[Rfam]
A member of the RNA family "Selenocysteine transfer RNA" from Denitratisoma sp. DHT3, 92 nucleotides long. Its family is annotated with triplet codon-amino acid adaptor activity in the Gene Ontology. Pairs were carried over by alignment from the consensus structure, which is taken from published work.

RNA sequence: GGAAGAGGUCGUCCCCCGGUGGGGCGGCCGGUCUUCAAAACCGGCGGGGGCUGCCAGGCAGUCCCUGGUGGGUUCGACUCCCACUCUCUUCC
Numbered sequence: 001g002g003a004a005g006a007g008g009u010c011g012u013c014c015c016c017c018g019g020u021g022g023g024g025c026g027g028c029c030g031g032u033c034u035u036c037a038a039a040a041c042c043g044g045c046g047g048g049g050g051c052u053g054c055c056a057g058g059c060a061g062u063c064c065c066u067g068g069u070g071g072g073u074u075c076g077a078c079u080c081c082c083a084c085u086c087u088c089u090u091c092c
Stems, first nucleotide, its partner, number of pairs: 001092007008084001010026005016021001027045006047065005069083004

Annotation
The match comes from Rfam's covariance-model search (78 bits).